Rfam assigns this 132-nucleotide RNA sequence from Aotus nancymaae to the family "Small nucleolar RNA SNORA72". Taxonomically the source falls in Aotus (Eukaryota, Metazoa, Primates, Haplorrhini). Rfam describes the family as follows. U72 is a member of the H/ACA class of snoRNAs. The snoRNA gene is located in intron 4 of the ribosomal L30 protein gene in human, mouse and chicken. A search with the family's covariance model found it, with a score of 124 bits. On this family, see Ganot et al., Genes Dev 1997: "The family of box ACA small nucleolar RNAs is defined by an evolutionarily conserved secondary structure and ubiquitous sequence elements essential for RNA accumulation". The base pairs follow the family's consensus structure, which was predicted with PFOLD. By type it is an H/ACA-box small nucleolar RNA. Rfam 15.1 lists 1,541 matches to the family in 547 species.
[Rfam]
RNA sequence: CUGUGAGUAUUCUCAAUGUUCUGAUUUUAUAAUAGUCAGAACAGGCUAAACAUUUCCUAUAUUAAGACCAUGCAUAUGUACCCAGAUGUAGCCUGUUCCCUAGGUCUUGUCUUAUAAAUGCUGGUGACAAAC
Numbered sequence: 001c002u003g004u005g006a007g008u009a010u011u012c013u014c015a016a017u018g019u020u021c022u023g024a025u026u027u028u029a030u031a032a033u034a035g036u037c038a039g040a041a042c043a044g045g046c047u048a049a050a051c052a053u054u055u056c057c058u059a060u061a062u063u064a065a066g067a068c069c070a071u072g073c074a075u076a077u078g079u080a081c082c083c084a085g086a087u088g089u090a091g092c093c094u095g096u097u098c099c100c101u102a103g104g105u106c107u108u109g110u111c112u113u114a115u116a117a118a119u120g121c122u123g124g125u126g127a128c129a130a131a132c
Stems, first nucleotide, its partner, number of pairs: 003057001005055001017043010067125004072121002082109001084107004089102003